Rfam assigns this 415-nucleotide sequence from Notodromas monacha to the family "Giant, ornate, lake- and Lactobacillales-derived (GOLLD) RNA". By type it is a non-coding RNA gene. The source organism's lineage runs through Eukaryota, Metazoa, Eumetazoa, Podocopa and Notodromas. On this family, see Weinberg et al., Nature 2009: "Exceptional structured noncoding RNAs revealed by bacterial metagenome analysis".
[Rfam]
RNA sequence: AGGAGUAGUUUGGUAUUUCGUUGUUCAAAAGACGACGAAUCUGAAAGACGGACCACUACUUCUAUAAUCCACGACACAGAACUUUAUUUUUACAUUGAAGAGUAAAAUCAUAAAUUAGACUUAAAGCAAAAGUGUCCGUCAGGUAAUAGUGAAAGGUGACUACAUAGUAAUGAGCCGUUCAUUGCAUCGUCUAAACCGCAAGUUUAACGAUAUUCUUACCAAAAACCUCUAAUCCCGCAAGGACUAGUUGGGGAGGCAUCCUCGAAGAGAGUUGAGUAAUGAGAGAGUAACUAAUACCUCAAGGAGUGGUACACCUAAAAGACCGUCACUGAGAAAUACUUUUCAAAAGAAAGUGGAUAAGAGUAGAAACAAUAAUGACUCUAAAGGUUCUCAACAAAAACUGUAAUCUCAGGUU
Numbered sequence: 001a002g003g004a005g006u007a008g009u010u011u012g013g014u015a016u017u018u019c020g021u022u023g024u025u026c027a028a029a030a031g032a033c034g035a036c037g038a039a040u041c042u043g044a045a046a047g048a049c050g051g052a053c054c055a056c057u058a059c060u061u062c063u064a065u066a067a068u069c070c071a072c073g074a075c076a077c078a079g080a081a082c083u084u085u086a087u088u089u090u091u092a093c094a095u096u097g098a099a100g101a102g103u104a105a106a107a108u109c110a111u112a113a114a115u116u117a118g119a120c121u122u123a124a125a126g127c128a129a130a131a132g133u134g135u136c137c138g139u140c141a142g143g144u145a146a147u148a149g150u151g152a153a154a155g156g157u158g159a160c161u162a163c164a165u166a167g168u169a170a171u172g173a174g175c176c177g178u179u180c181a182u183u184g185c186a187u188c189g190u191c192u193a194a195a196c197c198g199c200a201a202g203u204u205u206a207a208c209g210a211u212a213u214u215c216u217u218a219c220c221a222a223a224a225a226c227c228u229c230u231a232a233u234c235c236c237g238c239a240a241g242g243a244c245u246a247g248u249u250g251g252g253g254a255g256g257c258a259u260c261c262u263c264g265a266a267g268a269g270a271g272u273u274g275a276g277u278a279a280u281g282a283g284a285g286a287g288u289a290a291c292u293a294a295u296a297c298c299u300c301a302a303g304g305a306g307u308g309g310u311a312c313a314c315c316u317a318a319a320a321g322a323c324c325g326u327c328a329c330u331g332a333g334a335a336a337u338a339c340u341u342u343u344c345a346a347a348a349g350a351a352a353g354u355g356g357a358u359a360a361g362a363g364u365a366g367a368a369a370c371a372a373u374a375a376u377g378a379c380u381c382u383a384a385a386g387g388u389u390c391u392c393a394a395c396a397a398a399a400a401c402u403g404u405a406a407u408c409u410c411a412g413g414u415u
Stems, first nucleotide, its partner, number of pairs: 001063009010044004017039009047140007126199002141299005147293004156329005167185006186211005193205004214284005227269004233243003248265003252261002308324003331392005337355007356408003361381004366376001400414003